About this RNA
The family of this 119-nucleotide sequence from Musa acuminata is "mir-166 microRNA precursor family".
RNA sequence: UUUGAGGGGAAUGUUGUCUGGGUCGAGGCAUCCGCAGAACUUGAGAUAGAUAGAUCGUCUAUCUUCUCUUCUCUUCUUUUAUGUUUGGAGAUCUCGGACCAGGCUUCAUUCCCCUCAAC
Numbered sequence: 001u002u003u004g005a006g007g008g009g010a011a012u013g014u015u016g017u018c019u020g021g022g023u024c025g026a027g028g029c030a031u032c033c034g035c036a037g038a039a040c041u042u043g044a045g046a047u048a049g050a051u052a053g054a055u056c057g058u059c060u061a062u063c064u065u066c067u068c069u070u071c072u073c074u075u076c077u078u079u080u081a082u083g084u085u086u087g088g089a090g091a092u093c094u095c096g097g098a099c100c101a102g103g104c105u106u107c108a109u110u111c112c113c114c115u116c117a118a119c
Base pairs, nucleotide, nucleotide: 002118003117004116005115006114007113008112009111010110011109012108013107016104017103018102019101020100021099024096025095026094027093028092